[Rfam]
RNA sequence: ACCCUUGCGCCCACCCCGCCCGCGUCCUAUAUCUGGGCUGUCGGGGAGUUCCCCGACUAUGGACAUAAACGCGCUCGUAAUAAGCGGCUCGGACCCGGGGGCGGUACCCGGCGGCUCCACCAUAUACUCCCUUGUUGGGGGAGCAUGGGGCCGAAACAGGAUCGACGAACGUCUAAAGGGGUUAUGCUUUGUCCCGGUGAGGUACCACCGUUAUCGGUCCGAAAUGUACAGUUGCCAACAACAACCGUGCUCCGGCAAUGGCUCUGGCUGCGUAAGCAGUUCGAGUCGCCGAAACUAAGUCCUUGCGCUUAGCAGCGUAAGGCGGGGUUCGCAGGUACCUGGCAACAGAAACCUGCACC
Numbered sequence: 001a002c003c004c005u006u007g008c009g010c011c012c013a014c015c016c017c018g019c020c021c022g023c024g025u026c027c028u029a030u031a032u033c034u035g036g037g038c039u040g041u042c043g044g045g046g047a048g049u050u051c052c053c054c055g056a057c058u059a060u061g062g063a064c065a066u067a068a069a070c071g072c073g074c075u076c077g078u079a080a081u082a083a084g085c086g087g088c089u090c091g092g093a094c095c096c097g098g099g100g101g102c103g104g105u106a107c108c109c110g111g112c113g114g115c116u117c118c119a120c121c122a123u124a125u126a127c128u129c130c131c132u133u134g135u136u137g138g139g140g141g142a143g144c145a146u147g148g149g150g151c152c153g154a155a156a157c158a159g160g161a162u163c164g165a166c167g168a169a170c171g172u173c174u175a176a177a178g179g180g181g182u183u184a185u186g187c188u189u190u191g192u193c194c195c196g197g198u199g200a201g202g203u204a205c206c207a208c209c210g211u212u213a214u215c216g217g218u219c220c221g222a223a224a225u226g227u228a229c230a231g232u233u234g235c236c237a238a239c240a241a242c243a244a245c246c247g248u249g250c251u252c253c254g255g256c257a258a259u260g261g262c263u264c265u266g267g268c269u270g271c272g273u274a275a276g277c278a279g280u281u282c283g284a285g286u287c288g289c290c291g292a293a294a295c296u297a298a299g300u301c302c303u304u305g306c307g308c309u310u311a312g313c314a315g316c317g318u319a320a321g322g323c324g325g326g327g328u329u330c331g332c333a334g335g336u337a338c339c340u341g342g343c344a345a346c347a348g349a350a351a352c353c354u355g356c357a358c359c
Stems, first nucleotide, its partner, number of pairs: 040057007061194005071187002073182004085171002089168003095111005112153007195210004201220002204218003325340004331356006
About this RNA:
Shown here is a 359-nucleotide sequence from Frigidibacter albus, a member of the family "Alphaproteobacteria transfer-messenger RNA". By type it is a non-coding RNA gene. Rfam's curators write: Bacterial tmRNA, also known as 10Sa RNA or SsrA, is named for its dual tRNA and mRNA-like properties. Its role is to liberate the mRNA from a stalled ribosome. To accomplish this part of the tmRNA is used as a reading frame that ends in a translation stop signal.